The family of this 102-nucleotide RNA from Vibrio cholerae is "gltS RNA". The sequence is in the family's curated seed alignment. Lineage of the source: Bacteria > Pseudomonadati > Pseudomonadota > Gammaproteobacteria > Vibrio cholerae. Rfam classes the family as a cis-regulatory element.

Nucleotides: 102
Base pairs, nucleotide, nucleotide: 020043021042022041023040024039025038026037060078061077062076063075064074065073066072
Number, partner (000 for none) and nucleotide at each position: 001000u002000g003000u004000c005000a006000c007000u008000a009000a010000g011000g012000a013000u014000u015000g016000u017000c018000u019000u020043u021042c022041u023040c024039a025038c026037a027000a028000u029000a030000u031000a032000u033000u034000u035000c036000c037026u038025g039024u040023g041022a042021g043020a044000g045000a046000c047000g048000g049000a050000a051000a052000g053000g054000a055000c056000g057000c058000g059000g060078a061077u062076c063075u064074g065073c066072u067000c068000c069000c070000u071000a072066a073065g074064c075063a076062g077061a078060u079000u080000u081000c082000a083000c084000u085000c086000a087000a088000a089000a090000c091000a092000a093000a094000a095000a096000g097000g098000a099000c100000a101000g102000g